[Rfam]
RNA: Guanidine-I riboswitch aptamer
Organism: Reinekea marinisedimentorum
RNA sequence: UAAAUAGACAUCUAGGGUUCCGGCUGCAGGUUUGCAGUGACUGGUCCGAGAGUUGUCAACCUCACUUCGAGGUCACACGGAGGGAUAAAAGCCCGGGAGAC
Number, nucleotide and partner (000 for none) at each position: 001u000002a000003a000004a000005u000006a000007g057008a056009c055010a054011u000012c052013u000014a000015g047016g046017g000018u000019u000020c044021c043022g041023g038024c037025u036026g035027c034028a033029g000030g000031u000032u000033u028034g027035c026036a025037g024038u023039g000040a000041c022042u000043g021044g020045u000046c016047c015048g000049a000050g000051a000052g012053u000054u010055g009056u008057c007058a000059a073060c072061c071062u070063c069064a000065c000066u000067u000068c000069g063070a062071g061072g060073u059074c000075a000076c096077a000078c099079g000080g000081a000082g094083g093084g092085a000086u000087a000088a000089a000090a000091g000092c084093c083094c082095g000096g076097g000098a000099g078100a000101c000